The record is a 134-nucleotide sequence from Clarias magur, which matches "Small nucleolar RNA SNORA9" in Rfam.
The family's RNA type in Rfam is H/ACA-box small nucleolar RNA.

[Rfam]
RNA sequence: AUGCAGGCUGUUCAGCGAGGCUAAGUCUAACAUGUGACUUUGUCCUUUCCUUUAUGUCUGCUAGAGAAACUUGGGGUGGUUUGAGGCCUGACGGUGUUCCCUCCGCUGUCAGGUUAUAGAAACCUUGUACAAAU
Numbered sequence: 001a002u003g004c005a006g007g008c009u010g011u012u013c014a015g016c017g018a019g020g021c022u023a024a025g026u027c028u029a030a031c032a033u034g035u036g037a038c039u040u041u042g043u044c045c046u047u048u049c050c051u052u053u054a055u056g057u058c059u060g061c062u063a064g065a066g067a068a069a070c071u072u073g074g075g076g077u078g079g080u081u082u083g084a085g086g087c088c089u090g091a092c093g094g095u096g097u098u099c100c101c102u103c104c105g106c107u108g109u110c111a112g113g114u115u116a117u118a119g120a121a122a123c124c125u126u127g128u129a130c131a132a133a134u
Stems, first nucleotide, its partner, number of pairs: 003061006018046003023040005072127005087113006094106003
Clan: SNORA9 clan. The source organism's lineage runs through Eukaryota, Actinopterygii, Clupeocephala, Otophysi and Clarias. Rfam describes the family as follows. ACA9 is a member of the H/ACA class of snoRNA that guide the sites of modification of uridines to pseudouridines. A search with the family's covariance model found it, with a score of 98 bits.